[Rfam]
RNA sequence: GUUCUGCAGUGAUAAUUUCAGAAAUAAAUUCACAUGUCAGUCUUCGGAGAUUUUCAAAUCAAUGAGAAUGAAAAUUAUGUUACAUAGCCGAAU
Number, nucleotide and partner (000 for none) at each position: 001g093002u092003u091004c090005u000006g088007c087008a000009g000010u000011g000012a000013u000014a000015a000016u000017u000018u000019c000020a000021g000022a000023a000024a000025u000026a000027a000028a000029u000030u000031c000032a000033c000034a000035u000036g000037u000038c000039a000040g000041u000042c000043u000044u000045c000046g000047g000048a000049g060050a059051u058052u057053u000054u000055c000056a000057a052058a051059u050060c049061a000062a000063u000064g000065a000066g000067a000068a000069u000070g000071a000072a000073a000074a000075u000076u000077a000078u000079g000080u000081u000082a000083c000084a000085u000086a000087g007088c006089c000090g004091a003092a002093u001
RNA: Small nucleolar RNA R64/Z200 family